[Rfam]
Shown here is a 103-nucleotide RNA sequence from Moellerella wisconsensis, a member of the family "TPP riboswitch aptamer (THI element)". NCBI's taxonomy places the organism under Bacteria, Pseudomonadota, Gammaproteobacteria, Moellerella, Moellerella wisconsensis.

RNA sequence: ACUGACUCAACGGGGUGCUAUGACGCAAAUAGUCAGGCUGAGAAAAAACCCGUCGAACCUGAUCCGACUAAUAUCGGUGUAGGGAUUUGAGCGAUGUACCUGC
Numbered sequence: 001a002c003u004g005a006c007u008c009a010a011c012g013g014g015g016u017g018c019u020a021u022g023a024c025g026c027a028a029a030u031a032g033u034c035a036g037g038c039u040g041a042g043a044a045a046a047a048a049c050c051c052g053u054c055g056a057a058c059c060u061g062a063u064c065c066g067a068c069u070a071a072u073a074u075c076g077g078u079g080u081a082g083g084g085a086u087u088u089g090a091g092c093g094a095u096g097u098a099c100c101u102g103c
Base pairs, nucleotide, nucleotide: 006091007090008089009088010087011052012051013050014049016046017038018037019036058083059082060081061080064077065076066075067074